A member of the RNA family "Bacterial small subunit ribosomal RNA" from Acetivibrio saccincola, 355 nucleotides of a longer RNA.
RNA sequence: GGUGUAAAGGGCGUGUAGGCGGGGAUGCAAGUCAGAUGUGAAAUUCCGGGGCUCAACCUCGGCACUGCAUCUGAAACUGUGUCUCUUGAGUGCUGGAGAGGAAAGUGGAAUUCCUAGUGUAGCGGUGAAAUGCGUAGAGAUUAGGAGGAACACCAGUGGCGAAGGCGACUUUCUGGACAGCAACUGACGCUGAGGCGCGAGAGCGUGGGGAGCAAACAGGAUUAGAUACCCUGGUAGUCCACGCCGUAAACGAUGGAUACUAGGUGUAGGAGGUAUCGACCCCUUCUGUGCCGUAGUUAACACAAUAAGUAUCCCACCUGGGGAGUACGGCCGCAAGGCUGAAACUCAAAGGAAU
Numbered sequence: 001g002g003u004g005u006a007a008a009g010g011g012c013g014u015g016u017a018g019g020c021g022g023g024g025a026u027g028c029a030a031g032u033c034a035g036a037u038g039u040g041a042a043a044u045u046c047c048g049g050g051g052c053u054c055a056a057c058c059u060c061g062g063c064a065c066u067g068c069a070u071c072u073g074a075a076a077c078u079g080u081g082u083c084u085c086u087u088g089a090g091u092g093c094u095g096g097a098g099a100g101g102a103a104a105g106u107g108g109a110a111u112u113c114c115u116a117g118u119g120u121a122g123c124g125g126u127g128a129a130a131u132g133c134g135u136a137g138a139g140a141u142u143a144g145g146a147g148g149a150a151c152a153c154c155a156g157u158g159g160c161g162a163a164g165g166c167g168a169c170u171u172u173c174u175g176g177a178c179a180g181c182a183a184c185u186g187a188c189g190c191u192g193a194g195g196c197g198c199g200a201g202a203g204c205g206u207g208g209g210g211a212g213c214a215a216a217c218a219g220g221a222u223u224a225g226a227u228a229c230c231c232u233g234g235u236a237g238u239c240c241a242c243g244c245c246g247u248a249a250a251c252g253a254u255g256g257a258u259a260c261u262a263g264g265u266g267u268a269g270g271a272g273g274u275a276u277c278g279a280c281c282c283c284u285u286c287u288g289u290g291c292c293g294u295a296g297u298u299a300a301c302a303c304a305a306u307a308a309g310u311a312u313c314c315c316a317c318c319u320g321g322g323g324a325g326u327a328c329g330g331c332c333g334c335a336a337g338g339c340u341g342a343a344a345c346u347c348a349a350a351g352g353a354a355u
Stems, first nucleotide, its partner, number of pairs: 001318003009315001011198004016192001018191003022085007030078002032074009046062006089185003092181004100174007107151001111147008122133003159166002203244006212238002217233004255314006263292011296303002320347003329340004
Dot-bracket structure: (((.....(.((((.(.(((.(((((((.(((((((((((.....((((((.....))))))...)))))))))..)))))))))...(((((((....((((((((...((((((((...(((......)))......))))))))...).......((....)).)))))))...)))).)))...))))..))))....((((((...((...((((.........))))...))))))))..........((((((..(((((((((((........)))))))))))...((....)).....)))))))))).(((......((((....))))....)))........